[Rfam]
RNA sequence: ACCUGCAUCGAAAGUGAUUGUGGCCUGAUCAUUGAUACUGCAGGCAGAGAAUUCCUGAAAGCAUUUCCCGUGUUUGGGGGGCUUCUUUCCAUCCCUUCCAAACCCUGAGCUUUUCAGACA
Numbered sequence: 001a002c003c004u005g006c007a008u009c010g011a012a013a014g015u016g017a018u019u020g021u022g023g024c025c026u027g028a029u030c031a032u033u034g035a036u037a038c039u040g041c042a043g044g045c046a047g048a049g050a051a052u053u054c055c056u057g058a059a060a061g062c063a064u065u066u067c068c069c070g071u072g073u074u075u076g077g078g079g080g081g082c083u084u085c086u087u088u089c090c091a092u093c094c095c096u097u098c099c100a101a102a103c104c105c106u107g108a109g110c111u112u113u114u115c116a117g118a119c120a
Base pairs, nucleotide, nucleotide: 002044003043004042005041006040007039013033014032015031016030017029018028019027020026054117056116057115058114059113060112061111072103073102074101075100076099077097078096079095080094081093

The family of this 120-nucleotide sequence from Podarcis lilfordi is "Small nucleolar RNA SNORA71". The family has 40 seed sequences and 1,805 matches in Rfam 15.1. Rfam links the family to the GO terms nucleolus and RNA processing. About the family: The members of this family belong to the H/ACA class of snoRNAs which bind a number of proteins (including dyskerin, Gar1p and Nop10p) to form snoRNP complexes. This class of snoRNAs are thought to guide the sites of modification of uridines to pseudouridines by forming direct base pairing interactions with substrate RNAs. This family includes U71 (SNORA71), ACA39 (SNORA39) and ACA60 (SNORA60). U71 and ACA60 are predicted to guide the pseudouridylation of U406 and U1004 in 18S rRNA respectively. Taxonomically the source falls in Podarcis (Eukaryota, Sarcopterygii, Unidentata, Laterata). A reference for the family is Ganot et al. (1997), "The family of box ACA small nucleolar RNAs is defined by an evolutionarily conserved secondary structure and ubiquitous sequence elements essential for RNA accumulation", Genes Dev.